A member of the RNA family "U4atac minor spliceosomal RNA" from Camponotus floridanus, 127 nucleotides long. A reference for the family is Lorkovic et al. (2005), "Evolutionary conservation of minor U12-type spliceosome between plants and humans", RNA. Lineage of the source: Eukaryota > Panarthropoda > Hexapoda > Apocrita > Camponotus. The family is grouped with related families in Rfam's "U4 clan". U4atac is an essential component of the minor U12-type spliceosome complex which is required for removal of the rarer class of eukaryotic introns (AT-AC, U12-type).

RNA sequence: AGGGUCCUUGUCUUUGGGGAGCAAAGUGUUCAAUGAUCGUUUAGUGAGAAUACUGUUGCUGAAACCCAUUGUUAAAGCUAUAUGACCGCAUCCAUGUUUUAAAACAUGAGAUGCAAUUUUUGGAAGG
Numbered sequence: 001a002g003g004g005u006c007c008u009u010g011u012c013u014u015u016g017g018g019g020a021g022c023a024a025a026g027u028g029u030u031c032a033a034u035g036a037u038c039g040u041u042u043a044g045u046g047a048g049a050a051u052a053c054u055g056u057u058g059c060u061g062a063a064a065c066c067c068a069u070u071g072u073u074a075a076a077g078c079u080a081u082a083u084g085a086c087c088g089c090a091u092c093c094a095u096g097u098u099u100u101a102a103a104a105c106a107u108g109a110g111a112u113g114c115a116a117u118u119u120u121u122g123g124a125a126g127g
Stems, first nucleotide, its partner, number of pairs: 005019004021059004025054007038044001088114005093108006